A member of the RNA family "mir-998 microRNA precursor family" from Papilio machaon, 80 nucleotides long. It scores 62 bits against the family's covariance model. The base pairs follow the family's consensus structure, which was predicted with RNAalifold. Gene Ontology terms of the family: miRNA-mediated post-transcriptional gene silencing and RISC complex.
RNA sequence: GGGGCCGUGUCGCGAGCUGUCUCCCGUGCGGCUCCAGUGCGCGCGUGUAGCACCAUGGGAUUCAGCUCACGGCCGGUUCC
Numbered sequence: 001g002g003g004g005c006c007g008u009g010u011c012g013c014g015a016g017c018u019g020u021c022u023c024c025c026g027u028g029c030g031g032c033u034c035c036a037g038u039g040c041g042c043g044c045g046u047g048u049a050g051c052a053c054c055a056u057g058g059g060a061u062u063c064a065g066c067u068c069a070c071g072g073c074c075g076g077u078u079c080c
Stems, first nucleotide, its partner, number of pairs: 003078005009073001011071002014068002017065003022060007032050002035047002